[Rfam]
RNA sequence: UCUGGCGACUGGUUGAGUAUCCUAACGGGCUUUUCAACUGGUCACCCAUAAAUAUAAGGAGACGUGUUAGUGGCCCGUAUCGCUGGCAUUAACGUUCCUGAC
Numbered sequence: 001u002c003u004g005g006c007g008a009c010u011g012g013u014u015g016a017g018u019a020u021c022c023u024a025a026c027g028g029g030c031u032u033u034u035c036a037a038c039u040g041g042u043c044a045c046c047c048a049u050a051a052a053u054a055u056a057a058g059g060a061g062a063c064g065u066g067u068u069a070g071u072g073g074c075c076c077g078u079a080u081c082g083c084u085g086g087c088a089u090u091a092a093c094g095u096u097c098c099u100g101a102c
Stems, first nucleotide, its partner, number of pairs: 004046002007043007021086002026077004034101003
This 102-nucleotide sequence from Pseudidiomarina piscicola belongs to the Rfam family "Alpha operon ribosome binding site". Rfam describes the family as follows. The bacterial alpha operon ribosome binding site is surrounded by this complex pseudoknotted structure. Translation of the mRNA produces 4 ribosomal protein products, one of which (S4) acts as a translational repressor by binding to the nested pseudoknot region. The mechanism of repression is thought to involve a conformational switch in the pseudoknot region and ribosome entrapment. Pairs were carried over by alignment from the consensus structure, which is taken from published work. Gene Ontology term of the family: ribosome binding. On this family, see Schlax et al., J Biol Chem 2001: "Translational repression of the Escherichia coli alpha operon mRNA: importance of an mRNA conformational switch and a ternary entrapment complex".